This 285-nucleotide RNA sequence from Schistosoma margrebowiei belongs to the Rfam family "Metazoan signal recognition particle RNA". Lineage of the source: Eukaryota > Bilateria > Strigeidida > Schistosomatoidea > Schistosoma. From the family's description: The signal recognition particle (SRP) is a universally conserved ribonucleoprotein. It is involved in the co-translational targeting of proteins to membranes. For this family Rfam cites "Towards the structure of the mammalian signal recognition particle" (Wild et al., Curr Opin Struct Biol, 2002).

RNA sequence: GAUGGGCGUGGUGACGUUCUCCUGUAAUCUGGUCAGGGUGCGGGAUUUCGUGGGACCGGGAGUUCUGGCAAAUGGGUGUUCAUGUAAUCGGGCGUCCACGCUAAGCACGGCGCCGAUAUGGAUGACCUGUCGGAGGGUGGGUUGUCCAGGUCGGCUAAGGAGGGGUGAACUGCCCCAGGGGGGAAACCAAGCAGGCAAACGUCCCCGCGUUGUGCGGUAGCGGGAUAGCGCCUGUGAAUUGUGUCCAUCUGACAGCCCGUUUGGUGAGUGAAGACCGCCUCCUUU
Numbered sequence: 001g002a003u004g005g006g007c008g009u010g011g012u013g014a015c016g017u018u019c020u021c022c023u024g025u026a027a028u029c030u031g032g033u034c035a036g037g038g039u040g041c042g043g044g045a046u047u048u049c050g051u052g053g054g055a056c057c058g059g060g061a062g063u064u065c066u067g068g069c070a071a072a073u074g075g076g077u078g079u080u081c082a083u084g085u086a087a088u089c090g091g092g093c094g095u096c097c098a099c100g101c102u103a104a105g106c107a108c109g110g111c112g113c114c115g116a117u118a119u120g121g122a123u124g125a126c127c128u129g130u131c132g133g134a135g136g137g138u139g140g141g142u143u144g145u146c147c148a149g150g151u152c153g154g155c156u157a158a159g160g161a162g163g164g165g166u167g168a169a170c171u172g173c174c175c176c177a178g179g180g181g182g183g184a185a186a187c188c189a190a191g192c193a194g195g196c197a198a199a200c201g202u203c204c205c206c207g208c209g210u211u212g213u214g215c216g217g218u219a220g221c222g223g224g225a226u227a228g229c230g231c232c233u234g235u236g237a238a239u240u241g242u243g244u245c246c247a248u249c250u251g252a253c254a255g256c257c258c259g260u261u262u263g264g265u266g267a268g269u270g271a272a273g274a275c276c277g278c279c280u281c282c283u284u285u
Stems, first nucleotide, its partner, number of pairs: 001034003004023003008019001010017001035283004040278004046273005051267001054262002057259004065255003069251002072248006080241001082239002085236001089234007096224002099222005105215009114153004119148013155159001162205006171198001174195002181188002